[Rfam]
RNA sequence: CGGUUUCGUAAUGCCGACGCAAUAAAAGGACGGGGAUUGUAUAUGUGUUCCUAUUCAAACAAUGCAAUUCCUAAAUGGUAGAAGAUGUUGCGAAGCCAGUACCGCCUGGCGAUGAAAUGGCGGACGAAUUAGCAACAAAGGGUAAGGUUUAAUCGCCGAAGUUAGAUUUCGGAUAGCUGCGGAAGUGGCGGGAUUGGUAUAGUAGAUCAGUAAUGAUCUGAUAUGUAGGGCAAAUUGGAUUAAGACGCAUAGAAAUAUAUUUAAGCUGUAGAAGGCUUACUACAAUA
Numbered sequence: 001c002g003g004u005u006u007c008g009u010a011a012u013g014c015c016g017a018c019g020c021a022a023u024a025a026a027a028g029g030a031c032g033g034g035g036a037u038u039g040u041a042u043a044u045g046u047g048u049u050c051c052u053a054u055u056c057a058a059a060c061a062a063u064g065c066a067a068u069u070c071c072u073a074a075a076u077g078g079u080a081g082a083a084g085a086u087g088u089u090g091c092g093a094a095g096c097c098a099g100u101a102c103c104g105c106c107u108g109g110c111g112a113u114g115a116a117a118u119g120g121c122g123g124a125c126g127a128a129u130u131a132g133c134a135a136c137a138a139a140g141g142g143u144a145a146g147g148u149u150u151a152a153u154c155g156c157c158g159a160a161g162u163u164a165g166a167u168u169u170c171g172g173a174u175a176g177c178u179g180c181g182g183a184a185g186u187g188g189c190g191g192g193a194u195u196g197g198u199a200u201a202g203u204a205g206a207u208c209a210g211u212a213a214u215g216a217u218c219u220g221a222u223a224u225g226u227a228g229g230g231c232a233a234a235u236u237g238g239a240u241u242a243a244g245a246c247g248c249a250u251a252g253a254a255a256u257a258u259a260u261u262u263a264a265g266c267u268g269u270a271g272a273a274g275g276c277u278u279a280c281u282a283c284a285a286u287a
Stems, first nucleotide, its partner, number of pairs: 001016004034071003037067006044061003086137006099125002102123004156172005176189005203220007222251005263278005
Dot-bracket structure: ((((........)))).................(((((((((.(((............))))))))).)))..............((((((.......((.((((..............))))))......))))))..................(((((.......)))))...(((((....))))).............(((((((....))))))).(((((....................)))))...........(((((......))))).........
The record is a 287-nucleotide RNA, which matches "throat-1 RNA" in Rfam.
The family's RNA type in Rfam is small RNA.
It is one of the family's seed sequences.